[Rfam]
RNA sequence: AGCUUUGUGCUGUGGAAGUAUUGUAGCCAAUGAGGUUUAUCCAAGGCAUGAUUAUUGCUAAUUAAGAAUUAAGUUACAAUUAGGGCGCCUGGGUGGCUCAGUGGGUUAAGCCGCUGCCUUCGGCUCAGGUCAUGAUCUCAGGGUC
Numbered sequence: 001a002g003c004u005u006u007g008u009g010c011u012g013u014g015g016a017a018g019u020a021u022u023g024u025a026g027c028c029a030a031u032g033a034g035g036u037u038u039a040u041c042c043a044a045g046g047c048a049u050g051a052u053u054a055u056u057g058c059u060a061a062u063u064a065a066g067a068a069u070u071a072a073g074u075u076a077c078a079a080u081u082a083g084g085g086c087g088c089c090u091g092g093g094u095g096g097c098u099c100a101g102u103g104g105g106u107u108a109a110g111c112c113g114c115u116g117c118c119u120u121c122g123g124c125u126c127a128g129g130u131c132a133u134g135a136u137c138u139c140a141g142g143g144u145c
Stems, first nucleotide, its partner, number of pairs: 020052005026047003034042002087124003091119007099110001134145004
U4 spliceosomal RNA: a 145-nucleotide RNA from Neogale vison. The match comes from Rfam's covariance-model search (59 bits). Its family is annotated with spliceosomal tri-snRNP complex assembly and U4 snRNP in the Gene Ontology. Pairs were carried over by alignment from the consensus structure, which is taken from published work. NCBI's taxonomy places the organism under Eukaryota, Chordata, Sarcopterygii, Carnivora, Neogale.